[Rfam]
RNA sequence: CUCUGUUUCAUGAUGUGGAAGACUAGUGAUUUUAUUGUUUAUGAAAUCUGCCAACAAUAAAUCACACUCUUCUCACAUCAUGUACAGUA
Numbered sequence: 001c002u003c004u005g006u007u008u009c010a011u012g013a014u015g016u017g018g019a020a021g022a023c024u025a026g027u028g029a030u031u032u033u034a035u036u037g038u039u040u041a042u043g044a045a046a047u048c049u050g051c052c053a054a055c056a057a058u059a060a061a062u063c064a065c066a067c068u069c070u071u072c073u074c075a076c077a078u079c080a081u082g083u084a085c086a087g088u089a
Base pairs, nucleotide, nucleotide: 003087004086005085006084009082011080012079013078014077015076016075017074018073020070021069022068024066026065027064028063029062030061031060032059034058035057036056037055038054039053

A member of the RNA family "mir-7 microRNA precursor family" from Capitella teleta, 89 nucleotides long. From the family's description: This family represents the microRNA (miRNA) precursor mir-7. Taxonomically the source falls in Capitella (Eukaryota, Lophotrochozoa, Scolecida, Capitellidae). The base pairs follow the family's consensus structure, which was predicted with PFOLD. On this family, see Lagos-Quintana et al., Science 2001: "Identification of novel genes coding for small expressed RNAs". Its family is annotated with miRNA-mediated post-transcriptional gene silencing and RISC complex in the Gene Ontology.